Background
Shown here is a 68-nucleotide sequence from Heliothis virescens, a member of the family "mir-2766 microRNA precursor family". Pairs were carried over by alignment from the consensus structure, which was predicted with RNAalifold. The source organism's lineage runs through Eukaryota, Eumetazoa, Mandibulata, Neolepidoptera and Heliothis.
[Rfam]
RNA sequence: GUUUGGUCCAUCCUUCGUCUCGACUGGCGCUGUAUAUCGCAUCAGUCUUGUCGAAUGGUGGGUUAGAU
Numbered sequence: 001g002u003u004u005g006g007u008c009c010a011u012c013c014u015u016c017g018u019c020u021c022g023a024c025u026g027g028c029g030c031u032g033u034a035u036a037u038c039g040c041a042u043c044a045g046u047c048u049u050g051u052c053g054a055a056u057g058g059u060g061g062g063u064u065a066g067a068u
Base pairs, nucleotide, nucleotide: 002067003066004065005064006063007062008061009060010059011058012057014055015054016053017052019050022047023046024045025044026043027042029040030039